[Rfam]
RNA: Phenylalanine leader peptide
RNA sequence: AACCCCCCCCCUUUUUUUUUUUUUCCCCCCUUUUUUUUUUUUUUUUUUUUUUUUUAAAAGGUUUUUGGGGAAAAAAAAGGGGGGGGGAAAAAAAAAGGGGGGGCCCCCCAAAAAGGGGGGUUUUUUUUUU
Numbered sequence: 001a002a003c004c005c006c007c008c009c010c011c012u013u014u015u016u017u018u019u020u021u022u023u024u025c026c027c028c029c030c031u032u033u034u035u036u037u038u039u040u041u042u043u044u045u046u047u048u049u050u051u052u053u054u055u056a057a058a059a060g061g062u063u064u065u066u067g068g069g070g071a072a073a074a075a076a077a078a079g080g081g082g083g084g085g086g087g088a089a090a091a092a093a094a095a096a097g098g099g100g101g102g103g104c105c106c107c108c109c110a111a112a113a114a115g116g117g118g119g120g121u122u123u124u125u126u127u128u129u130u
Base pairs, nucleotide, nucleotide: 016096017095018094019093021091022090023089024088025087026086027085028084029083030082031081032080033079034078036076037075038074039073046059047058048057049056062068063067100124101123102122103121104120105119106118107117108116109115